[Rfam]
RNA sequence: CUUCACCGACCCCAGCCACAGCGGCCGGUCCUCCUGACGUCCCUGGCCGUAGGUGGCCAGGAUCGCCUGCGCCUC
Numbered sequence: 001c002u003u004c005a006c007c008g009a010c011c012c013c014a015g016c017c018a019c020a021g022c023g024g025c026c027g028g029u030c031c032u033c034c035u036g037a038c039g040u041c042c043c044u045g046g047c048c049g050u051a052g053g054u055g056g057c058c059a060g061g062a063u064c065g066c067c068u069g070c071g072c073c074u075c
Stems, first nucleotide, its partner, number of pairs: 015025003031071001033069001038065002043060003047056003
This 75-nucleotide RNA from Solihabitans fulvus belongs to the Rfam family "ASpks TB sRNA".
Lineage of the source: Bacteria > Actinomycetota > Actinomycetes > Pseudonocardiaceae > Solihabitans.